Rfam assigns this 156-nucleotide sequence from Populus trichocarpa to the family "MIR2912 microRNA precursor family".
The family's consensus secondary structure was predicted with RNAalifold.
RNA sequence: UCUAGAACUCGAGAUAUAGACUGAACACUGAAUAGUGUCUGGGCUGCAUGACAAAUUCCAACUUCUCCGUUGUUGCUACCAUUUGAACUAAAAAAUGACACAUUUAAAUCUUGGACUCUUCAUGAAAGUUUUAGGCCUAUGUCUUAGCUUUCCAUA
Numbered sequence: 001u002c003u004a005g006a007a008c009u010c011g012a013g014a015u016a017u018a019g020a021c022u023g024a025a026c027a028c029u030g031a032a033u034a035g036u037g038u039c040u041g042g043g044c045u046g047c048a049u050g051a052c053a054a055a056u057u058c059c060a061a062c063u064u065c066u067c068c069g070u071u072g073u074u075g076c077u078a079c080c081a082u083u084u085g086a087a088c089u090a091a092a093a094a095a096u097g098a099c100a101c102a103u104u105u106a107a108a109u110c111u112u113g114g115a116c117u118c119u120u121c122a123u124g125a126a127a128g129u130u131u132u133a134g135g136c137c138u139a140u141g142u143c144u145u146a147g148c149u150u151u152c153c154a155u156a
Base pairs, nucleotide, nucleotide: 003154005152006151007150008147009146011145012144013143014142015141016140017139018138019137021134022133023132024131025130027129028128029127035123036122037121041119042118043117045115048112050110051109054105055104057102063097072088073087074086
Dot-bracket structure: ..(.(((((.(((((((((.(((((.(((.....(((...(((.(..(.((..((.(.....(........(((...........)))........)....).))...)).)..).))).)))...))))))))..)))))))))))..))).)..